[Rfam]
Shown here is a 125-nucleotide RNA sequence from Chloropsis hardwickii, a member of the family "Small nucleolar RNA ACA64". The base pairs follow the family's consensus structure, which was predicted with WAR. By type it is an H/ACA-box small nucleolar RNA. Lineage of the source: Eukaryota > Metazoa > Saurischia > Australaves > Chloropsis.
RNA sequence: GCGGUCUGAAAAUCACCCGGGGUCUGCCGUGACCCCGGGUGAGAUAACGGCGCCCACAGCAGCGGGAACAUUUAGCUUAUUGCCCACGGCUGCGUGUGGGCAAUGAAACCCGUGUUCCCACACGG
Numbered sequence: 001g002c003g004g005u006c007u008g009a010a011a012a013u014c015a016c017c018c019g020g021g022g023u024c025u026g027c028c029g030u031g032a033c034c035c036c037g038g039g040u041g042a043g044a045u046a047a048c049g050g051c052g053c054c055c056a057c058a059g060c061a062g063c064g065g066g067a068a069c070a071u072u073u074a075g076c077u078u079a080u081u082g083c084c085c086a087c088g089g090c091u092g093c094g095u096g097u098g099g100g101c102a103a104u105g106a107a108a109c110c111c112g113u114g115u116u117c118c119c120a121c122a123c124g125g
Stems, first nucleotide, its partner, number of pairs: 006050003010045001013042004021034004065118001067116005077106005085096003